RNA sequence: GAAAACUUAGCUCCAUACAAAUGUAUACGAUGAAGCAUUGUAUGGAGC
Numbered sequence: 001g002a003a004a005a006c007u008u009a010g011c012u013c014c015a016u017a018c019a020a021a022u023g024u025a026u027a028c029g030a031u032g033a034a035g036c037a038u039u040g041u042a043u044g045g046a047g048c
Stems, first nucleotide, its partner, number of pairs: 011047005017041003
Record summary: The family of this 48-nucleotide RNA from Shimazuella alba is "uup RNA". The family's RNA type in Rfam is cis-regulatory element. The base pairs follow the family's consensus structure, which is taken from published work.